This 249-nucleotide sequence from Streptomyces sp. SID5910 belongs to the Rfam family "Streptomyces sRNA 4677". The literature on the family includes a 2014 paper in PLoS One by Hindra et al., "Complex intra-operonic dynamics mediated by a small RNA in Streptomyces coelicolor". About the family: Located in the intergenic region between anti-sigma factor SCO4677 gene and a putative regulatory protein gene SCO4676. scr4677 expression requires the SCO4677 activity and scr4677 sRNA itself seem to affect the levels of the SCO4676-associated transcripts.
[Rfam]
RNA sequence: GGCUCCGGUGCGGCAGGGGCCCUACCAAGGAAAGAACUUGGGGAGAAAGCACCCCACCAAGCCCCACCCCUCCCCCCGAGGCGGGCCAUCACUCGGGCGGGUGAACAUCACCGACUGAGCUGGAUUUCCGAGCCCUGGGCUCCCUUACGCUCAGCGCACCCGACCACCAAAAGGUCGGCCCCCGCCGGGACUGCCAUCCCAUGGCGAGGGCCUGACCACCAAGGAAGACAGGACUAGGACCUCUUCCCG
Numbered sequence: 001g002g003c004u005c006c007g008g009u010g011c012g013g014c015a016g017g018g019g020c021c022c023u024a025c026c027a028a029g030g031a032a033a034g035a036a037c038u039u040g041g042g043g044a045g046a047a048a049g050c051a052c053c054c055c056a057c058c059a060a061g062c063c064c065c066a067c068c069c070c071u072c073c074c075c076c077c078g079a080g081g082c083g084g085g086c087c088a089u090c091a092c093u094c095g096g097g098c099g100g101g102u103g104a105a106c107a108u109c110a111c112c113g114a115c116u117g118a119g120c121u122g123g124a125u126u127u128c129c130g131a132g133c134c135c136u137g138g139g140c141u142c143c144c145u146u147a148c149g150c151u152c153a154g155c156g157c158a159c160c161c162g163a164c165c166a167c168c169a170a171a172a173g174g175u176c177g178g179c180c181c182c183c184g185c186c187g188g189g190a191c192u193g194c195c196a197u198c199c200c201a202u203g204g205c206g207a208g209g210g211c212c213u214g215a216c217c218a219c220c221a222a223g224g225a226a227g228a229c230a231g232g233a234c235u236a237g238g239a240c241c242u243c244u245u246c247c248c249g
Stems, first nucleotide, its partner, number of pairs: 007220004016076004089104006119155005177212005183206003187200004223247005